[Rfam]
RNA sequence: UCGAUUAUUUCCGCCGCUACCGAAUCGGCGGAAUAGCUCUCGACUUGACAGUUCAAAAGCAACCCGCCCAGAAGGCGGGUUUU
Numbered sequence: 001u002c003g004a005u006u007a008u009u010u011c012c013g014c015c016g017c018u019a020c021c022g023a024a025u026c027g028g029c030g031g032a033a034u035a036g037c038u039c040u041c042g043a044c045u046u047g048a049c050a051g052u053u054c055a056a057a058a059g060c061a062a063c064c065c066g067c068c069c070a071g072a073a074g075g076c077g078g079g080u081u082u083u
Base pairs, nucleotide, nucleotide: 011031012030013029014028015027016026061081062080063079064078065077066076067075068074
This 83-nucleotide RNA sequence from Caballeronia sp. SBC1 belongs to the Rfam family "Pseudomonas sRNA P9".
About the family: This small RNA (sRNA) was computationally identified in the genome of the opportunistic pathogen Pseudomonas aeruginosa and its expression verified by northern blot analysis.
A search with the family's covariance model found it, with a score of 52 bits.
The family's RNA type in Rfam is non-coding RNA gene.